[Rfam]
RNA: isrN Hfq binding RNA
Organism: Tatumella morbirosei
RNA sequence: CGAUGACUGGGUCAUUGCGCUGUGUAUCCGGCUGGUAAAAAAAUACCGUCCUGCUCAGUGAUAAUGUCCUGUAAGCCUUGCGCGCGCUCAUUUUAUGCUGCGAGAUCAGAUAAUGGGAGAGUUCACGCUUUAUCACUGGUUUU
Numbered sequence: 001c002g003a004u005g006a007c008u009g010g011g012u013c014a015u016u017g018c019g020c021u022g023u024g025u026a027u028c029c030g031g032c033u034g035g036u037a038a039a040a041a042a043a044u045a046c047c048g049u050c051c052u053g054c055u056c057a058g059u060g061a062u063a064a065u066g067u068c069c070u071g072u073a074a075g076c077c078u079u080g081c082g083c084g085c086g087c088u089c090a091u092u093u094u095a096u097g098c099u100g101c102g103a104g105a106u107c108a109g110a111u112a113a114u115g116g117g118a119g120a121g122u123u124c125a126c127g128c129u130u131u132a133u134c135a136c137u138g139g140u141u142u143u
Base pairs, nucleotide, nucleotide: 025112026111027110028109030107031106048077050075052073053072054071058067059066060065081102082101083100116141117140120137121136122135